[Rfam]
RNA: Alphaproteobacteria transfer-messenger RNA
RNA sequence: GCCCUUGCGGAAGGCACCUGAUUACACCAUAUUAGCCGUGCCGGCUUGCCGGCUACGGUGCUAAACGCCAAGCGGAAUAAGCACAGCGGACCCGGGGGCGGUACCCGGCGCCUCCACCACAAGCUGCGUUUGAGAUUUUUAACGGAAUUUCGGCGCGCGCCACGCGGUUUGUGAUGGGGGCGAAAUAGGAUCGACGCGUGUAAUAAAGGCUUGGUUUGUGCUCGGCAUGGUACCGCCGAUAUCGGGCCAUUUUGAUAAGUGCCAAUGAUAACACAGAAGCACUUGCUGUCGCGGCCUAACACGCCAUAACGACAACGGGGUUCGGGCGGCACCUGGCAACAGAAGCCGCCCACU
Numbered sequence: 001g002c003c004c005u006u007g008c009g010g011a012a013g014g015c016a017c018c019u020g021a022u023u024a025c026a027c028c029a030u031a032u033u034a035g036c037c038g039u040g041c042c043g044g045c046u047u048g049c050c051g052g053c054u055a056c057g058g059u060g061c062u063a064a065a066c067g068c069c070a071a072g073c074g075g076a077a078u079a080a081g082c083a084c085a086g087c088g089g090a091c092c093c094g095g096g097g098g099c100g101g102u103a104c105c106c107g108g109c110g111c112c113u114c115c116a117c118c119a120c121a122a123g124c125u126g127c128g129u130u131u132g133a134g135a136u137u138u139u140u141a142a143c144g145g146a147a148u149u150u151c152g153g154c155g156c157g158c159g160c161c162a163c164g165c166g167g168u169u170u171g172u173g174a175u176g177g178g179g180g181c182g183a184a185a186u187a188g189g190a191u192c193g194a195c196g197c198g199u200g201u202a203a204u205a206a207a208g209g210c211u212u213g214g215u216u217u218g219u220g221c222u223c224g225g226c227a228u229g230g231u232a233c234c235g236c237c238g239a240u241a242u243c244g245g246g247c248c249a250u251u252u253u254g255a256u257a258a259g260u261g262c263c264a265a266u267g268a269u270a271a272c273a274c275a276g277a278a279g280c281a282c283u284u285g286c287u288g289u290c291g292c293g294g295c296c297u298a299a300c301a302c303g304c305c306a307u308a309a310c311g312a313c314a315a316c317g318g319g320g321u322u323c324g325g326g327c328g329g330c331a332c333c334u335g336g337c338a339a340c341a342g343a344a345g346c347c348g349c350c351c352a353c354u
Stems, first nucleotide, its partner, number of pairs: 040053005057222005067215007082200003086197003092108005109182007223238004228249003233245002318334004324351006